The family of this 138-nucleotide RNA sequence from Vibrio agarilyticus is "Gammaprotebacteria rimP leader". A reference for the family is Naville and Gautheret (2010), "Premature terminator analysis sheds light on a hidden world of bacterial transcriptional attenuation", Genome Biol. A search with the family's covariance model found it, with a score of 87 bits.
[Rfam]
RNA sequence: ACUUACACUCAACGUAUCAGGGUCCAGCAACAUAAAACCCCGACUUUCGGGGUUUUUUGUUAUCUGAAUUUUUUCAGGUUAAUCACCGAAAAAUUCAAUGUUGCUUGGUAAAUCGAAUGGGCUCUGAGCCCUUUUUUU
Numbered sequence: 001a002c003u004u005a006c007a008c009u010c011a012a013c014g015u016a017u018c019a020g021g022g023u024c025c026a027g028c029a030a031c032a033u034a035a036a037a038c039c040c041c042g043a044c045u046u047u048c049g050g051g052g053u054u055u056u057u058u059g060u061u062a063u064c065u066g067a068a069u070u071u072u073u074u075c076a077g078g079u080u081a082a083u084c085a086c087c088g089a090a091a092a093a094u095u096c097a098a099u100g101u102u103g104c105u106u107g108g109u110a111a112a113u114c115g116a117a118u119g120g121g122c123u124c125u126g127a128g129c130c131c132u133u134u135u136u137u138u
Stems, first nucleotide, its partner, number of pairs: 034056009119131004